The family of this 101-nucleotide RNA from Rhinopithecus bieti is "Y RNA". Y RNAs are components of the Ro ribonucleoprotein particle (Ro RNP), in association with Ro60 and La proteins. Rfam classes the family as a non-coding RNA gene. The family has 104 seed sequences and 26,986 matches in Rfam 15.1. The family's consensus secondary structure is taken from published work. NCBI's taxonomy places the organism under Eukaryota, Euteleostomi, Sarcopterygii, Catarrhini, Rhinopithecus.

RNA sequence: GGCUGGUCUGAGGCAGUGAUGUUUACAACUGAUUGAUCAUAACCAGUUACAGAUUCCUUUGUUCUUUCUCCUUUCCCACUGCUUCACUUGACUAGCCUUUA
Number, nucleotide and partner (000 for none) at each position: 001g097002g096003c095004u094005g093006g092007u091008c090009u000010g089011a088012g000013g085014c000015a080016g079017u078018g077019a000020u000021g075022u000023u000024u000025a000026c000027a063028a062029c061030u000031g059032a058033u000034u000035g000036a000037u000038c000039a000040u000041a000042a000043c000044c000045a000046g000047u000048u000049a000050c000051a000052g000053a000054u000055u000056c000057c000058u032059u031060u000061g029062u028063u027064c000065u000066u000067u000068c000069u000070c000071c000072u000073u000074u000075c021076c000077c018078a017079c016080u015081g000082c000083u000084u000085c013086a000087c000088u011089u010090g008091a007092c006093u005094a004095g003096c002097c001098u000099u000100u000101a000